RNA: permuted transfer-messenger RNA
RNA sequence: AGUUGUAUGAAGCCGAUAAAAAGGCGUUCUGGACGGCGGUUCGAUUCCGCCCAUCUCCACCAAAAACACACUGCCGUUCAAUACAUACGUGCGUAAGUUCUAGAUAAGCCCGCCGAGGUUAGUUAGAGGGUUGCAAACUUCUAAUGCUGGUGUGUUUUUGAUGGGGAUGUACUGGUUUCGACAGGGCGAAUGAGUAUUGAAGCAGACAACUCGUCAGAGUAGACGUAAACACUAAAUCAAUUUAAAUGCAAACGAUGAAGUUUUCGCAUUGGCAGCUUAA
Number, nucleotide and partner (000 for none) at each position: 001a211002g210003u209004u208005g207006u000007a000008u000009g000010a000011a000012g000013c000014c199015g198016a197017u000018a000019a000020a000021a000022a000023g000024g000025c188026g187027u186028u000029c184030u183031g182032g000033a000034c000035g051036g050037c049038g048039g047040u000041u000042c000043g000044a000045u000046u000047c039048c038049g037050c036051c035052c169053a168054u167055c166056u165057c164058c163059a000060c000061c000062a000063a000064a000065a000066a000067c000068a000069c000070a000071c000072u000073g000074c000075c000076g000077u000078u000079c000080a000081a000082u000083a000084c000085a000086u000087a000088c000089g000090u000091g000092c000093g000094u000095a000096a000097g000098u000099u000100c000101u000102a000103g000104a000105u000106a000107a000108g000109c000110c000111c000112g000113c000114c000115g000116a000117g000118g000119u000120u000121a000122g000123u000124u000125a000126g000127a000128g000129g000130g000131u000132u000133g000134c000135a000136a000137a000138c000139u000140u000141c000142u000143a000144a000145u000146g000147c000148u000149g000150g000151u000152g000153u000154g000155u000156u000157u000158u000159u000160g000161a000162u000163g058164g057165g056166g055167a054168u053169g052170u000171a000172c000173u000174g000175g000176u000177u000178u000179c000180g000181a000182c031183a030184g029185g000186g027187c026188g025189a000190a000191u000192g000193a000194g000195u000196a000197u016198u015199g014200a000201a000202g000203c000204a000205g000206a000207c005208a004209a003210c002211u001212c225213g224214u223215c222216a000217g000218a000219g000220u000221a000222g215223a214224c213225g212226u000227a000228a000229a000230c000231a000232c000233u000234a000235a000236a000237u000238c000239a000240a000241u000242u000243u000244a000245a000246a000247u000248g000249c000250a000251a000252a000253c000254g000255a000256u000257g000258a000259a000260g000261u000262u000263u000264u000265c000266g000267c000268a000269u000270u000271g000272g000273c000274a000275g000276c000277u000278u000279a000280a000